[Rfam]
Rfam assigns this 355-nucleotide part of an RNA from Ktedonobacter racemifer to the family "Bacterial small subunit ribosomal RNA". The family is grouped with related families in Rfam's "SSU clan". The family's consensus secondary structure is taken from published work. The source organism's lineage runs through Bacteria, Ktedonobacterales, Ktedonobacteraceae, Ktedonobacter and Ktedonobacter racemifer.

RNA sequence: GGCGUAAAGCGCACGCAGGCGGUUUCGUACGUCCGGAGUGACAGUUCCCGGCUCAACUGGGAAAGGUCUUCGGAAACGGCGAGACUUGAGGGCUUCAGAGGGACACGGAAUUCCGGGUGGAGUGGUGAAAUGCGUAGAGAUCCGGAGGAACACCAAUGGCGAAGGCAGUGUCCUGGGAAGCAUCUGACGCUCAGGUGCGAAAGCUAGGGGAGCGAACAGGAUUAGAUACCCUGGUAGUCCUAGCCGUAAACGAUGACCACUAGGUGUGGGAGGUAUCGACCCCUUCCGUGCCGUCGCAAACGCAGUAAGUGGUCCGCCUGGGGAGUACGGUCGCAAGAUUAAAACUCAAAGGAAU
Numbered sequence: 001g002g003c004g005u006a007a008a009g010c011g012c013a014c015g016c017a018g019g020c021g022g023u024u025u026c027g028u029a030c031g032u033c034c035g036g037a038g039u040g041a042c043a044g045u046u047c048c049c050g051g052c053u054c055a056a057c058u059g060g061g062a063a064a065g066g067u068c069u070u071c072g073g074a075a076a077c078g079g080c081g082a083g084a085c086u087u088g089a090g091g092g093c094u095u096c097a098g099a100g101g102g103a104c105a106c107g108g109a110a111u112u113c114c115g116g117g118u119g120g121a122g123u124g125g126u127g128a129a130a131u132g133c134g135u136a137g138a139g140a141u142c143c144g145g146a147g148g149a150a151c152a153c154c155a156a157u158g159g160c161g162a163a164g165g166c167a168g169u170g171u172c173c174u175g176g177g178a179a180g181c182a183u184c185u186g187a188c189g190c191u192c193a194g195g196u197g198c199g200a201a202a203g204c205u206a207g208g209g210g211a212g213c214g215a216a217c218a219g220g221a222u223u224a225g226a227u228a229c230c231c232u233g234g235u236a237g238u239c240c241u242a243g244c245c246g247u248a249a250a251c252g253a254u255g256a257c258c259a260c261u262a263g264g265u266g267u268g269g270g271a272g273g274u275a276u277c278g279a280c281c282c283c284u285u286c287c288g289u290g291c292c293g294u295c296g297c298a299a300a301c302g303c304a305g306u307a308a309g310u311g312g313u314c315c316g317c318c319u320g321g322g323g324a325g326u327a328c329g330g331u332c333g334c335a336a337g338a339u340u341a342a343a344a345c346u347c348a349a350a351g352g353a354a355u
Stems, first nucleotide, its partner, number of pairs: 001318003009315001011198004018191003022085007030078002032074007045063007089185003092181005100174007107151001111147008122133003159166002203244006212238002217233004255314006263292011296303002320347003329340004